[Rfam]
RNA sequence: AAAGAUAAAGCCAAACCUGUUGCGAGGCAGGGACGGAAAGCCUACGGGUCUCAUAGAGAUGGCCGGUUACCUUGU
Numbered sequence: 001a002a003a004g005a006u007a008a009a010g011c012c013a014a015a016c017c018u019g020u021u022g023c024g025a026g027g028c029a030g031g032g033a034c035g036g037a038a039a040g041c042c043u044a045c046g047g048g049u050c051u052c053a054u055a056g057a058g059a060u061g062g063c064c065g066g067u068u069a070c071c072u073u074g075u
Stems, first nucleotide, its partner, number of pairs: 001075001003072002011036002016031006034062001039068004046064002048060003
Rfam assigns this 75-nucleotide RNA sequence from Candidatus Electrothrix aarhusensis to the family "c-di-GMP-I-GGC riboswitch aptamer".
The base pairs follow the family's consensus structure, which is taken from published work.
The literature on the family includes a 2017 paper in Proc Natl Acad Sci U S A by Weinberg et al., "Bioinformatic analysis of riboswitch structures uncovers variant classes with altered ligand specificity".
Its Rfam clan is "c-di-GMP_I riboswitch clan".
The source organism's lineage runs through Bacteria, Thermodesulfobacteriota, Desulfobulbia, Desulfobulbales and Candidatus Electrothrix.
The family has 40 seed sequences and 1,298 matches in Rfam 15.1.